[Rfam]
RNA sequence: UAAUUUAUUUAGGACAGAUUCUCAUUUAGUUAUAGUAAAUCUCAUACCUGACUGCUUAGAAUCAUUCACUAUUAUGUGAAUAAUAACUUUUUAAGAUUUUAAUUAAAGU
Numbered sequence: 001u002a003a004u005u006u007a008u009u010u011a012g013g014a015c016a017g018a019u020u021c022u023c024a025u026u027u028a029g030u031u032a033u034a035g036u037a038a039a040u041c042u043c044a045u046a047c048c049u050g051a052c053u054g055c056u057u058a059g060a061a062u063c064a065u066u067c068a069c070u071a072u073u074a075u076g077u078g079a080a081u082a083a084u085a086a087c088u089u090u091u092u093a094a095g096a097u098u099u100u101a102a103u104u105a106a107a108g109u
Stems, first nucleotide, its partner, number of pairs: 004107004008102002012098001015095001018092001025086001027083001029081003
A member of the RNA family "MIR480 microRNA precursor family" from Populus trichocarpa, 109 nucleotides long. The organism belongs to Populus, within Eukaryota.